Shown here is a 150-nucleotide sequence from Escherichia coli, a member of the family "sok antitoxin (CssrC)". The base pairs follow the family's consensus structure, which is taken from published work. The family's RNA type in Rfam is antitoxin RNA. For this family Rfam cites "An antisense RNA controls synthesis of an SOS-induced toxin evolved from an antitoxin" (Kawano et al., Mol Microbiol, 2007). Rfam describes the family as follows. Also identified in Shigella as CssrC.
[Rfam]
RNA sequence: GGGUGCCUGAAGCUUUCCGGUUUCAGGUUAACUCUGAGGUCUGGAAAGAUGAAGCCCCAGGAGAUAUUUCUAUCAAUCCUGGGGCUGCCACUCCGAGCCUCAACAACUCGGAUGGUAGUCCCUUCUUCGCAUGGAGGCAAUAUAAACAUG
Numbered sequence: 001g002g003g004u005g006c007c008u009g010a011a012g013c014u015u016u017c018c019g020g021u022u023u024c025a026g027g028u029u030a031a032c033u034c035u036g037a038g039g040u041c042u043g044g045a046a047a048g049a050u051g052a053a054g055c056c057c058c059a060g061g062a063g064a065u066a067u068u069u070c071u072a073u074c075a076a077u078c079c080u081g082g083g084g085c086u087g088c089c090a091c092u093c094c095g096a097g098c099c100u101c102a103a104c105a106a107c108u109c110g111g112a113u114g115g116u117a118g119u120c121c122c123u124u125c126u127u128c129g130c131a132u133g134g135a136g137g138c139a140a141u142a143u144a145a146a147c148a149u150g
Stems, first nucleotide, its partner, number of pairs: 001058003005055002008053001011050001013048008022039001024038001027035001059080001063078003081122005088115003092111001094110004131143001